[Rfam]
RNA: ffh sRNA
RNA sequence: GAUUCCGGAGGUCAACGUCCGCCAGCGCGUUGCGCCCGCGGGCGGCGUACCU
Numbered sequence: 001g002a003u004u005c006c007g008g009a010g011g012u013c014a015a016c017g018u019c020c021g022c023c024a025g026c027g028c029g030u031u032g033c034g035c036c037c038g039c040g041g042g043c044g045g046c047g048u049a050c051c052u
Base pairs, nucleotide, nucleotide: 016044017043018042019041020040021039022038025035026034027033028032